Rfam assigns this 110-nucleotide RNA sequence from Geotrypetes seraphini to the family "mraW RNA". By type it is a cis-regulatory element. A search with the family's covariance model found it, with a score of 54 bits.
[Rfam]
RNA sequence: UCUAUCGGGCCGAUCAAUCUUCCUCUCCCCGACGUCAAUUCUGCGGAACUUCCUCUCCGACGGCAGAAUUGACGUCGGGGAGAGGAAGAUUGAUCGGCCCGAAGCAGAGA
Numbered sequence: 001u002c003u004a005u006c007g008g009g010c011c012g013a014u015c016a017a018u019c020u021u022c023c024u025c026u027c028c029c030c031g032a033c034g035u036c037a038a039u040u041c042u043g044c045g046g047a048a049c050u051u052c053c054u055c056u057c058c059g060a061c062g063g064c065a066g067a068a069u070u071g072a073c074g075u076c077g078g079g080g081a082g083a084g085g086a087a088g089a090u091u092g093a094u095c096g097g098c099c100c101g102a103a104g105c106a107g108a109g110a
Base pairs, nucleotide, nucleotide: 010097011096012095013094014093015092016091018089019088021086022085023084024083025082026081027080028079029078030077031076032075033074034073035072036071037070038069039068040067041066042065043064044063046061